The family of this 108-nucleotide sequence from Erwinia sp. 198 is "t44 RNA". This family consists of a number of bacterial RNA genes of between 135 and 170 bases in length. On this family, see Tjaden et al., Nucleic Acids Res 2002: "Transcriptome analysis of Escherichia coli using high-density oligonucleotide probe arrays".
RNA sequence: CUCACUAUGUGUAAAUAACACACAUGUAUCGACACGUACGCCGGGGUGCCUUAAGCGCUGCGUAAGCGGCCUGAGAGGUCGGUCGUAUGGGAUACAUGGAGGCUUAAC
Numbered sequence: 001c002u003c004a005c006u007a008u009g010u011g012u013a014a015a016u017a018a019c020a021c022a023c024a025u026g027u028a029u030c031g032a033c034a035c036g037u038a039c040g041c042c043g044g045g046g047u048g049c050c051u052u053a054a055g056c057g058c059u060g061c062g063u064a065a066g067c068g069g070c071c072u073g074a075g076a077g078g079u080c081g082g083u084c085g086u087a088u089g090g091g092a093u094a095c096a097u098g099g100a101g102g103c104u105u106a107a108c
Stems, first nucleotide, its partner, number of pairs: 023098008035089005040083004048079005